RNA sequence: AUUAUCGGUAGGCGCAUUUGAACUGUAUUGUACGCCUUGCAUAAAGCAAAAGUACUAAAAAAGGAGUAU
Numbered sequence: 001a002u003u004a005u006c007g008g009u010a011g012g013c014g015c016a017u018u019u020g021a022a023c024u025g026u027a028u029u030g031u032a033c034g035c036c037u038u039g040c041a042u043a044a045a046g047c048a049a050a051a052g053u054a055c056u057a058a059a060a061a062a063g064g065a066g067u068a069u
Base pairs, nucleotide, nucleotide: 010037011036012035013034028058029057030055031054032053033052039047040046
Dot-bracket structure: .........((((..............[[[[[[)))).((.....))....]]]].]]...........
This 69-nucleotide sequence from Candidatus Pelagibacter communis belongs to the Rfam family "SAM-V (S-adenosyl methionine) riboswitch aptamer". The family has 7 seed sequences and 23 matches in Rfam 15.1. The base pairs follow the family's consensus structure, which is taken from published work. SAM-V riboswitch is a cis-regulatory element that was recognised in marine bacteria it recognise S-adenosylmethione (SAM). The binding of SAM leads to the association of the triplex third strand in the aptamer of SAM-V riboswitch that stabilizes a short helix and occludes the ribosome binding site.